This 112-nucleotide RNA sequence from Rhizobium album belongs to the Rfam family "rpsB sRNA". Rfam classes the family as a small RNA. A search with the family's covariance model found it, with a score of 52 bits.

RNA sequence: CACACGUGGGGCAUGGGAUCGUCCGGGAGAAAUCCGGGCUGUUCCGCCGGUGGCUUCCUCGAAGAGGAGGCUGUUCGCCCCGCGGAGGUUCAACCGGAAAAGGAGAAAAAGG
Numbered sequence: 001c002a003c004a005c006g007u008g009g010g011g012c013a014u015g016g017g018a019u020c021g022u023c024c025g026g027g028a029g030a031a032a033u034c035c036g037g038g039c040u041g042u043u044c045c046g047c048c049g050g051u052g053g054c055u056u057c058c059u060c061g062a063a064g065a066g067g068a069g070g071c072u073g074u075u076c077g078c079c080c081c082g083c084g085g086a087g088g089u090u091c092a093a094c095c096g097g098a099a100a101a102g103g104a105g106a107a108a109a110a111g112g
Stems, first nucleotide, its partner, number of pairs: 001087001003085001005084007016045002024036002027034001052072009
The organism belongs to Rhizobium, within Bacteria.